[Rfam]
Shown here is an 80-nucleotide RNA from Eptesicus fuscus, a member of the family "mir-9261 microRNA precursor family". Rfam 15.1 lists 196 matches to the family in 3 species. Rfam's curators put it in the seed alignment. The organism belongs to Eptesicus, within Eukaryota.

RNA sequence: AACAAUUUGUCCCGCGUCCCACGGCGUUUUAAAAAGGUUCCUAUUUUUGAAACGCCGUGGGACGCGGGACAAAUUGUUAA
Numbered sequence: 001a002a003c004a005a006u007u008u009g010u011c012c013c014g015c016g017u018c019c020c021a022c023g024g025c026g027u028u029u030u031a032a033a034a035a036g037g038u039u040c041c042u043a044u045u046u047u048u049g050a051a052a053c054g055c056c057g058u059g060g061g062a063c064g065c066g067g068g069a070c071a072a073a074u075u076g077u078u079a080a
Stems, first nucleotide, its partner, number of pairs: 001078035